The family of this 117-nucleotide RNA is "LOOT RNA". Rfam classes the family as a small RNA. The base pairs follow the family's consensus structure, which is taken from published work.
[Rfam]
RNA sequence: UGCCUAAGUCCUAAUAGGAUAUGGCACAAAAAACCUACCAUAGGAUAGAGAGCUCGUCGUCAGAGCACCUGUGGUAGGUCAUAUCCCGAAAGGGGUAUGGGUGGUCGCAAGACCAUC
Numbered sequence: 001u002g003c004c005u006a007a008g009u010c011c012u013a014a015u016a017g018g019a020u021a022u023g024g025c026a027c028a029a030a031a032a033a034c035c036u037a038c039c040a041u042a043g044g045a046u047a048g049a050g051a052g053c054u055c056g057u058c059g060u061c062a063g064a065g066c067a068c069c070u071g072u073g074g075u076a077g078g079u080c081a082u083a084u085c086c087c088g089a090a091a092g093g094g095g096u097a098u099g100g101g102u103g104g105u106c107g108c109a110a111g112a113c114c115a116u117c
Stems, first nucleotide, its partner, number of pairs: 001026004009019004034078011052066003080099008100117006